[Rfam]
RNA sequence: UUCUUAUCUAGAGAGGUAGAGGGACUGGCCCUUUGACGCCUCAGCAACCAUUAACAUUCAUUCGUUAAUAAGGUGCUAAUUCCAGCAAAUUGUGAAAGAUUUGACAGAUGAGAA
Dot-bracket structure: ((((((((....(((((...(((.[[[[)))......)))))((((.((((((((........))))))..))))))...(]]]]((((((......))))))..)))))))))
RNA: SAM riboswitch aptamer (S box leader)